RNA: Glutamine riboswitch aptamer (glnA leader)
RNA sequence: AACGUUCAUCUUAUUUUAAGACGGAAGUAGGAAGAUACGAUCUGCGUUUACUCUUUCUGAGUGACGCAAGCUUUAGUCGAAAGACUAACAGUCCAUAGAUCUACCGAAGGAACGCGUU
Numbered sequence: 001a002a003c004g005u006u007c008a009u010c011u012u013a014u015u016u017u018a019a020g021a022c023g024g025a026a027g028u029a030g031g032a033a034g035a036u037a038c039g040a041u042c043u044g045c046g047u048u049u050a051c052u053c054u055u056u057c058u059g060a061g062u063g064a065c066g067c068a069a070g071c072u073u074u075a076g077u078c079g080a081a082a083g084a085c086u087a088a089c090a091g092u093c094c095a096u097a098g099a100u101c102u103a104c105c106g107a108a109g110g111a112a113c114g115c116g117u118u
Stems, first nucleotide, its partner, number of pairs: 003114005009021004024115001030105002